[Rfam]
RNA: Streptomyces sRNA 4677
RNA sequence: GACGCGGCUGUCCACGACGUCUAAAGGCUUUUAAAGAACUCAGGGAAACAACCCCACCCAACCCGACCCGGCCCCCGUCCUGACCUGCAUCACUCGCGCGAGUGAACCUGGGCAACUGGGCUGGAUUCGAGGCCGGUUGUUCGGCAUAUGCUCGCCGCGACAACCACAGAACUGAGACGGCCCCCGCCGAGACUGACAAUCUCAACCGGGGGCCUGACCACGAGGAAGGCAACAACUUCCCG
Numbered sequence: 001g002a003c004g005c006g007g008c009u010g011u012c013c014a015c016g017a018c019g020u021c022u023a024a025a026g027g028c029u030u031u032u033a034a035a036g037a038a039c040u041c042a043g044g045g046a047a048a049c050a051a052c053c054c055c056a057c058c059c060a061a062c063c064c065g066a067c068c069c070g071g072c073c074c075c076c077g078u079c080c081u082g083a084c085c086u087g088c089a090u091c092a093c094u095c096g097c098g099c100g101a102g103u104g105a106a107c108c109u110g111g112g113c114a115a116c117u118g119g120g121c122u123g124g125a126u127u128c129g130a131g132g133c134c135g136g137u138u139g140u141u142c143g144g145c146a147u148a149u150g151c152u153c154g155c156c157g158c159g160a161c162a163a164c165c166a167c168a169g170a171a172c173u174g175a176g177a178c179g180g181c182c183c184c185c186g187c188c189g190a191g192a193c194u195g196a197c198a199a200u201c202u203c204a205a206c207c208g209g210g211g212g213c214c215u216g217a218c219c220a221c222g223a224g225g226a227a228g229g230c231a232a233c234a235a236c237u238u239c240c241c242g
Stems, first nucleotide, its partner, number of pairs: 007221001009220002016079004090105006120156001122154003179214005185208002189203004224240005